[Rfam]
RNA sequence: CACCCGAAGUGGCACGCGACAUCAGGGGCGCCUAGGCUGGAAUUGGAACAGGGGCCAGCCGCUGCGCACGUCGGGGACGCCCGGGGCCGGUAGUCGGGGGACUGCCGGCCCCAACUUU
Numbered sequence: 001c002a003c004c005c006g007a008a009g010u011g012g013c014a015c016g017c018g019a020c021a022u023c024a025g026g027g028g029c030g031c032c033u034a035g036g037c038u039g040g041a042a043u044u045g046g047a048a049c050a051g052g053g054g055c056c057a058g059c060c061g062c063u064g065c066g067c068a069c070g071u072c073g074g075g076g077a078c079g080c081c082c083g084g085g086g087c088c089g090g091u092a093g094u095c096g097g098g099g100g101a102c103u104g105c106c107g108g109c110c111c112c113a114a115c116u117u118u
Stems, first nucleotide, its partner, number of pairs: 003075005009069003012065002014033001016031003035060006043052002083112013
Source information: This 118-nucleotide RNA sequence from Pseudoxanthomonas composti belongs to the Rfam family "Xanthomonadaceae sRNA asX1". The family's consensus secondary structure was predicted with CMfinder. A reference for the family is Schmidtke et al. (2011), "Genome-wide transcriptome analysis of the plant pathogen Xanthomonas identifies sRNAs with putative virulence functions", Nucleic Acids Res.